Shown here is a 71-nucleotide RNA from Crocodylus porosus, a member of the family "mir-451 microRNA precursor family". NCBI's taxonomy places the organism under Eukaryota, Gnathostomata, Sauropsida, Archelosauria, Crocodylus. The family's consensus secondary structure was predicted with RNAalifold. It scores 80 bits against the family's covariance model.
RNA sequence: CCCGGGGCGGCGGCGAAACCGUUACCAUUACUGAGUUUAGUAAUGGUGACGGUUCUCCCGCCGCCUCGCCU
Numbered sequence: 001c002c003c004g005g006g007g008c009g010g011c012g013g014c015g016a017a018a019c020c021g022u023u024a025c026c027a028u029u030a031c032u033g034a035g036u037u038u039a040g041u042a043a044u045g046g047u048g049a050c051g052g053u054u055c056u057c058c059c060g061c062c063g064c065c066u067c068g069c070c071u
Stems, first nucleotide, its partner, number of pairs: 007064003011060003017054004022049012